Description:
c-di-AMP riboswitch aptamer (ydaO/yuaA leader): a 173-nucleotide sequence from Arthrobacter mobilis.
RNA sequence: GGAGUCCGUUCGCACAACGCAUGGCAGAGGCGGGGGACCCACUUACCGGGCUUCCCUUCAAGCCCUAGGGGUUAAGCCGCCAGGAACCACCGGAACUUUCCGGGCCGGACCUGCGGCCGGGUGACUCCCACCCGAACCCGACAGCUCACCUCGCAGGCAUAGGGAGAGGUAAU
Numbered sequence: 001g002g003a004g005u006c007c008g009u010u011c012g013c014a015c016a017a018c019g020c021a022u023g024g025c026a027g028a029g030g031c032g033g034g035g036g037a038c039c040c041a042c043u044u045a046c047c048g049g050g051c052u053u054c055c056c057u058u059c060a061a062g063c064c065c066u067a068g069g070g071g072u073u074a075a076g077c078c079g080c081c082a083g084g085a086a087c088c089a090c091c092g093g094a095a096c097u098u099u100c101c102g103g104g105c106c107g108g109a110c111c112u113g114c115g116g117c118c119g120g121g122u123g124a125c126u127c128c129c130a131c132c133c134g135a136a137c138c139c140g141a142c143a144g145c146u147c148a149c150c151u152c153g154c155a156g157g158c159a160u161a162g163g164g165a166g167a168g169g170u171a172a173u
Base pairs, nucleotide, nucleotide: 005028006027030154031153032152033151034150035149040068069139070138071137077116078115079114080113119133120132121131122130